[Rfam]
RNA sequence: UAGCUUUGUUUUAAGUCAAACUUAUCUAACUUUGACCAAAUUUAUACAAAAAUAUAUUAAUAUCUACAAUAUCAAAUAAAUGCAUAACCAAUAUAUAUUACAUGGUGUAUCUAAUGAAAGUAGUUUGAUGUUAUAUUUAUUUGUGCAUUUUUCUAUAAACUUGGUCAAAUCUAAAGAAGUUUGGCUUAGGACAAAACUAG
Number, nucleotide and partner (000 for none) at each position: 001u000002a000003g000004c000005u195006u194007u193008g192009u191010u000011u189012u188013a187014a186015g185016u184017c183018a182019a181020a180021c179022u178023u177024a000025u175026c000027u000028a000029a000030c000031u169032u168033u167034g166035a165036c000037c000038a000039a000040a000041u000042u000043u000044a000045u155046a154047c000048a152049a151050a150051a149052a148053u000054a000055u145056a144057u143058u000059a141060a140061u139062a138063u000064c000065u135066a134067c000068a132069a000070u000071a000072u128073c127074a126075a125076a124077u123078a000079a000080a000081u000082g000083c000084a000085u000086a000087a000088c000089c000090a000091a000092u000093a000094u000095a000096u000097a000098u000099u000100a000101c000102a000103u000104g000105g000106u000107g000108u000109a000110u000111c000112u000113a000114a000115u000116g000117a000118a000119a000120g000121u000122a000123g077124u076125u075126u074127g073128a072129u000130g000131u000132u068133a000134u066135a065136u000137u000138u062139a061140u060141u059142u000143g057144u056145g055146c000147a000148u052149u051150u050151u049152u048153c000154u046155a045156u000157a000158a000159a000160c000161u000162u000163g000164g000165u035166c034167a033168a032169a031170u000171c000172u000173a000174a000175a025176g000177a023178a022179g021180u020181u019182u018183g017184g016185c015186u014187u013188a012189g011190g000191a009192c008193a007194a006195a005196a000197c000198u000199a000200g000